[Rfam]
RNA: ZMP/ZTP riboswitch aptamer (pfl RNA motif)
RNA sequence: UGAAAGCUGUGCGACUGGCGGAUAGUGGAGAAACCACGGGGAGCACGGCAGCAGAAAUGCCGGCCGCCUGGGCAACUUUU
Numbered sequence: 001u002g003a004a005a006g007c008u009g010u011g012c013g014a015c016u017g018g019c020g021g022a023u024a025g026u027g028g029a030g031a032a033a034c035c036a037c038g039g040g041g042a043g044c045a046c047g048g049c050a051g052c053a054g055a056a057a058u059g060c061c062g063g064c065c066g067c068c069u070g071g072g073c074a075a076c077u078u079u080u
Stems, first nucleotide, its partner, number of pairs: 006049007015040002017068005025037004058074004